[Rfam]
RNA sequence: GGCGCAGCUCUUGCUUUGGCUCUACUGCAGGUAGCCAAAGGUGGCUGCCCAACAAACGACAAAGACGUCGC
Numbered sequence: 001g002g003c004g005c006a007g008c009u010c011u012u013g014c015u016u017u018g019g020c021u022c023u024a025c026u027g028c029a030g031g032u033a034g035c036c037a038a039a040g041g042u043g044g045c046u047g048c049c050c051a052a053c054a055a056a057c058g059a060c061a062a063a064g065a066c067g068u069c070g071c
Stems, first nucleotide, its partner, number of pairs: 030049007
narK RNA: a 71-nucleotide sequence. Rfam's curators put it in the seed alignment. Pairs were carried over by alignment from the consensus structure, which is taken from published work.